[Rfam]
RNA sequence: UUAUUUAAUAGUAGAUUACCUUGUAUAAGUUCAAGAAUAUGGCUUGAACGUCUCUACCAGGCUGCCGUAAAUAGUCUGUCUACAAGGGGCAAUGAUAUAGGC
Numbered sequence: 001u002u003a004u005u006u007a008a009u010a011g012u013a014g015a016u017u018a019c020c021u022u023g024u025a026u027a028a029g030u031u032c033a034a035g036a037a038u039a040u041g042g043c044u045u046g047a048a049c050g051u052c053u054c055u056a057c058c059a060g061g062c063u064g065c066c067g068u069a070a071a072u073a074g075u076c077u078g079u080c081u082a083c084a085a086g087g088g089g090c091a092a093u094g095a096u097a098u099a100g101g102c
Stems, first nucleotide, its partner, number of pairs: 019087007029049007058078007
The family of this 102-nucleotide RNA sequence from Peribacillus deserti is "Purine riboswitch aptamer".